[Rfam]
Nucleotides: 033
Stems, first nucleotide, its partner, number of pairs: 001021008
Number, partner (000 for none) and nucleotide at each position: 001021a002020u003019c004018u005017u006016g007015g008014u009000c010000g011000g012000a013000a014008a015007c016006c017005a018004a019003g020002g021001u022000a023000u024000u025000a026000g027000u028000g029000a030000g031000g032000a033000g